[Rfam]
Shown here is a 75-nucleotide RNA sequence from Myotis myotis, a member of the family "mir-9223 microRNA precursor family". The base pairs follow the family's consensus structure, which was predicted with RNAalifold. A search with the family's covariance model found it, with a score of 63 bits.

RNA sequence: GGUGGUUAUUGCAUGACAAACCCUGGAAUCAGGCUCCCUCCUCUCUGGUUCUGGGUGCAUCACCCAAGAACCUCC
Dot-bracket structure: .(..(((.(((..(((...((((.(((((((((..........)))))))))))))...)))..))).)))..).